[Rfam]
RNA sequence: GGUGCCUCUGGAGGUGUUGUGGAUGUAACUGCUGUGUCACAUGUGCAUCGGUAGGUGGCAGAGAGGAGAAAGGCUAUGUUUACCUUCAGUUUUCUGACCUACGGAUAUCUGAAUGAUUAGUAGCCUAACACU
Numbered sequence: 001g002g003u004g005c006c007u008c009u010g011g012a013g014g015u016g017u018u019g020u021g022g023a024u025g026u027a028a029c030u031g032c033u034g035u036g037u038c039a040c041a042u043g044u045g046c047a048u049c050g051g052u053a054g055g056u057g058g059c060a061g062a063g064a065g066g067a068g069a070a071a072g073g074c075u076a077u078g079u080u081u082a083c084c085u086u087c088a089g090u091u092u093u094c095u096g097a098c099c100u101a102c103g104g105a106u107a108u109c110u111g112a113a114u115g116a117u118u119a120g121u122a123g124c125c126u127a128a129c130a131c132u
Stems, first nucleotide, its partner, number of pairs: 003060004007055004013049003019046003024041003028037002068129001071126007083115001086112004090107001092105003
This 132-nucleotide RNA sequence from Rattus norvegicus belongs to the Rfam family "Small nucleolar RNA SNORA17". The family is grouped with related families in Rfam's "SNORA17 clan". The literature on the family includes a 1997 paper in J Mol Biol by Ofengand and Bakin, "Mapping to nucleotide resolution of pseudouridine residues in large subunit ribosomal RNAs from representative eukaryotes, prokaryotes, archaebacteria, mitochondria and chloroplasts". It scores 108 bits against the family's covariance model. It is annotated as an H/ACA-box small nucleolar RNA.